[Rfam]
RNA sequence: GUAAAGAGACCUACUGCAAAGCAGGUUUUUACUAUACUAGAUUUGCCUCGUGCUUCGCUUUGGUCGGUUGGAGCGUGGGGCUUUUU
Numbered sequence: 001g002u003a004a005a006g007a008g009a010c011c012u013a014c015u016g017c018a019a020a021g022c023a024g025g026u027u028u029u030u031a032c033u034a035u036a037c038u039a040g041a042u043u044u045g046c047c048u049c050g051u052g053c054u055u056c057g058c059u060u061u062g063g064u065c066g067g068u069u070g071g072a073g074c075g076u077g078g079g080g081c082u083u084u085u086u
Base pairs, nucleotide, nucleotide: 005030006029007028008027009026010025011024012023016022017021045081046080047079048078049077050076051075052074053073054072055071056070057069
S. pyogenes small RNA 779816: an 86-nucleotide sequence from Streptococcus phage Javan503. The organism belongs to Caudoviricetes, within Viruses. For this family Rfam cites "RNA sequencing uncovers antisense RNAs and novel small RNAs in Streptococcus pyogenes" (Le Rhun et al., RNA Biol, 2016).